[Rfam]
RNA: SAM riboswitch aptamer (S box leader)
RNA sequence: AACUUAUCAAGAACUAGGGGAGAGAGUUGGCUCUGUGAUCCUAUACCAACCUACUAAAUAGUAAGGUGGUCCUGCUAACAACGAUAAGAA
Numbered sequence: 001a002a003c004u005u006a007u008c009a010a011g012a013a014c015u016a017g018g019g020g021a022g023a024g025a026g027u028u029g030g031c032u033c034u035g036u037g038a039u040c041c042u043a044u045a046c047c048a049a050c051c052u053a054c055u056a057a058a059u060a061g062u063a064a065g066g067u068g069g070u071c072c073u074g075c076u077a078a079c080a081a082c083g084a085u086a087a088g089a090a
Stems, first nucleotide, its partner, number of pairs: 003088006013044001015043004022033003027078004045070004050066002052063004074082001